[Rfam]
RNA: Histidine operon leader
Organism: Pantoea sp. Nvir
RNA sequence: UAAACACCACCAUCACCCUGACUAGUCUUUCAGGAGGUGUGCACUGGGAGAUAUUUAAAUCUUCCAAUGGAAUAAACGCAAGUCAAAGCCCCCGGAAGCAAUCUUCUUGGGGCUUUUUUUA
Number, nucleotide and partner (000 for none) at each position: 001u000002a000003a000004a000005c000006a000007c000008c000009a000010c041011c039012a038013u037014c036015a000016c000017c034018c033019u032020g031021a030022c000023u000024a000025g000026u000027c000028u000029u000030u021031c020032a019033g018034g017035a000036g014037g013038u012039g011040u000041g010042c000043a000044c000045u066046g065047g064048g063049a062050g061051a060052u000053a000054u000055u000056u000057a000058a000059a000060u051061c050062u049063u048064c047065c046066a045067a000068u000069g000070g000071a000072a000073u000074a000075a000076a000077c000078g000079c000080a000081a000082g000083u000084c000085a116086a115087a114088g113089c112090c111091c110092c109093c000094g107095g106096a105097a104098g103099c000100a000101a000102u000103c098104u097105u096106c095107u094108u000109g092110g091111g090112g089113c088114u087115u086116u085117u000118u000119u000120u000121a000